[Rfam]
RNA sequence: UUAAGUUAACCAUAUAAAAUAUAUCAUGUCCUUUAAUUAUAUGCAUUCGCCUCAAUAAGCCAUAAAUCUCAAGACAUUUUCUACUUGAGGUUGAUGCGUAUAAUUAAAUGAGAUGAUAUUAUUUAUGUGAUUAACUUAACU
Numbered sequence: 001u002u003a004a005g006u007u008a009a010c011c012a013u014a015u016a017a018a019a020u021a022u023a024u025c026a027u028g029u030c031c032u033u034u035a036a037u038u039a040u041a042u043g044c045a046u047u048c049g050c051c052u053c054a055a056u057a058a059g060c061c062a063u064a065a066a067u068c069u070c071a072a073g074a075c076a077u078u079u080u081c082u083a084c085u086u087g088a089g090g091u092u093g094a095u096g097c098g099u100a101u102a103a104u105u106a107a108a109u110g111a112g113a114u115g116a117u118a119u120u121a122u123u124u125a126u127g128u129g130a131u132u133a134a135c136u137u138a139a140c141u
Stems, first nucleotide, its partner, number of pairs: 001139009011129008021119005029111002032108016049091006
Dot-bracket structure: (((((((((.((((((((..(((((...((.((((((((((((((((.((((((...............................)))))).)))))))))))))))).))...)))))..)))))))).)))))))))..
RNA: MIR7993 microRNA precursor family